[Rfam]
RNA sequence: GAAACGAAGCGGUAUCUCGUUAACCCUUGAAGCCACCGCCCGUUCAGAGAGUUUCUCUCAAUAACUAAAGCCAACGUGAACUUUUGCGGACCCCGUGGUCCGCU
Numbered sequence: 001g002a003a004a005c006g007a008a009g010c011g012g013u014a015u016c017u018c019g020u021u022a023a024c025c026c027u028u029g030a031a032g033c034c035a036c037c038g039c040c041c042g043u044u045c046a047g048a049g050a051g052u053u054u055c056u057c058u059c060a061a062u063a064a065c066u067a068a069a070g071c072c073a074a075c076g077u078g079a080a081c082u083u084u085u086g087c088g089g090a091c092c093c094c095g096u097g098g099u100c101c102g103c104u
Stems, first nucleotide, its partner, number of pairs: 003044004009039004015032001017030002049059003086103007
Record summary
A member of the RNA family "OxyS RNA" from Trabulsiella odontotermitis, 104 nucleotides long. Pairs were carried over by alignment from the consensus structure, which is taken from published work. About the family: OxyS is a small untranslated RNA which is induced in response to oxidative stress in Escherichia coli. This novel RNA acts as a global regulator to activate or repress the expression of as many as 40 genes, including the fhlA-encoded transcriptional activator and the rpoS-encoded sigma(s) subunit of RNA polymerase. OxyS is bound by the Hfq protein, that increases the OxyS RNA interaction with its target messages. It is annotated as a small RNA.